mir-276 microRNA precursor family: an 84-nucleotide RNA from Nasonia vitripennis. Taxonomically the source falls in Nasonia (Eukaryota, Metazoa, Dicondylia, Chalcidoidea). Rfam links the family to the GO terms miRNA-mediated post-transcriptional gene silencing and RISC complex.

RNA sequence: UGGUAGAGAUCCAGCAGCGAGGUAUAGAGUUCCUACGUAGAUUUCAGAAAGUAGGAACUUCAUACCGUGCUCUUGGACUUGCCG
Dot-bracket structure: ..........(((..((((.(((((.((((((((((..............)))))))))).))))).))))..)))........